[Rfam]
RNA sequence: GGCAGAUCGGGAGGAGUUCCAUGUAGGAGCGUUCUCGUCGCAACUUCUGUCAGAUUUUAUCUAAAUCUGCAAUCCUACU
Numbered sequence: 001g002g003c004a005g006a007u008c009g010g011g012a013g014g015a016g017u018u019c020c021a022u023g024u025a026g027g028a029g030c031g032u033u034c035u036c037g038u039c040g041c042a043a044c045u046u047c048u049g050u051c052a053g054a055u056u057u058u059a060u061c062u063a064a065a066u067c068u069g070c071a072a073u074c075c076u077a078c079u
Stems, first nucleotide, its partner, number of pairs: 013047006021079001023078006029041003051069007